Rfam assigns this 357-nucleotide RNA from Paracoccus suum to the family "Alphaproteobacteria transfer-messenger RNA".
The family's RNA type in Rfam is non-coding RNA gene.
A reference for the family is Laslett et al. (2002), "BRUCE: a program for the detection of transfer-messenger RNA genes in nucleotide sequences", Nucleic Acids Res.

RNA sequence: GCACUUGCGGCGCCGCACGCGGCCGCCUAUCUUCGAUCUGUUCGGGGCAACCCGGGCUAUGGACAUAAACGCGCACGUAAUAGGCGGUUCGGACCCGGGGGCGGUACCCGGCGACUCCACCAAAAUCACCCGCAUUGGGGGUGCAUGGGGUCGAAAUAGGAUCGACGGACGUUCAAAGGUGUUUGCUUUGUCCCGGUGAGGUACCACCGUUAUCGGUCCGAAAAGUACAGUUGCCAAUGACAACCGUGCUCCGGUCGCCCUUGCUGCGUAAGCAGUUCGAGUGAUCGAAAACUAAGCCCUUGCGCCUAGCAGCGUAAGGCGGGGCCCCCAGGCGCCUGGCAACAGAAGCCUGGGACU
Numbered sequence: 001g002c003a004c005u006u007g008c009g010g011c012g013c014c015g016c017a018c019g020c021g022g023c024c025g026c027c028u029a030u031c032u033u034c035g036a037u038c039u040g041u042u043c044g045g046g047g048c049a050a051c052c053c054g055g056g057c058u059a060u061g062g063a064c065a066u067a068a069a070c071g072c073g074c075a076c077g078u079a080a081u082a083g084g085c086g087g088u089u090c091g092g093a094c095c096c097g098g099g100g101g102c103g104g105u106a107c108c109c110g111g112c113g114a115c116u117c118c119a120c121c122a123a124a125a126u127c128a129c130c131c132g133c134a135u136u137g138g139g140g141g142u143g144c145a146u147g148g149g150g151u152c153g154a155a156a157u158a159g160g161a162u163c164g165a166c167g168g169a170c171g172u173u174c175a176a177a178g179g180u181g182u183u184u185g186c187u188u189u190g191u192c193c194c195g196g197u198g199a200g201g202u203a204c205c206a207c208c209g210u211u212a213u214c215g216g217u218c219c220g221a222a223a224a225g226u227a228c229a230g231u232u233g234c235c236a237a238u239g240a241c242a243a244c245c246g247u248g249c250u251c252c253g254g255u256c257g258c259c260c261u262u263g264c265u266g267c268g269u270a271a272g273c274a275g276u277u278c279g280a281g282u283g284a285u286c287g288a289a290a291a292c293u294a295a296g297c298c299c300u301u302g303c304g305c306c307u308a309g310c311a312g313c314g315u316a317a318g319g320c321g322g323g324g325c326c327c328c329c330a331g332g333c334g335c336c337u338g339g340c341a342a343c344a345g346a347a348g349c350c351u352g353g354g355a356c357u
Stems, first nucleotide, its partner, number of pairs: 040057007061193005071186002073182004085171002089168003095111005112153007194209004200219002203217003322337004328353006